Shown here is a 129-nucleotide RNA sequence from Bacillus sp. Y1, a member of the family "Guanidine-I riboswitch aptamer". Rfam links the family to the GO term regulation of gene expression.
RNA sequence: CAAAAAGCUGUCUAGGGUUCCGUUGGUUUAGUGUAUGAUCCACCCCUUACACUAGUAUCAAGUCUGGUCCAAGAGAGAGCGUAUAGAAUUUUUUUUCUAUAUACACGGAAGGAUAAAAGCCUGGGAGAU
Numbered sequence: 001c002a003a004a005a006a007g008c009u010g011u012c013u014a015g016g017g018u019u020c021c022g023u024u025g026g027u028u029u030a031g032u033g034u035a036u037g038a039u040c041c042a043c044c045c046c047u048u049a050c051a052c053u054a055g056u057a058u059c060a061a062g063u064c065u066g067g068u069c070c071a072a073g074a075g076a077g078a079g080c081g082u083a084u085a086g087a088a089u090u091u092u093u094u095u096u097c098u099a100u101a102u103a104c105a106c107g108g109a110a111g112g113a114u115a116a117a118a119g120c121c122u123g124g125g126a127g128a129u
Stems, first nucleotide, its partner, number of pairs: 007080003011076002015070002020067002022064001023061005081102008104124001106127001110122003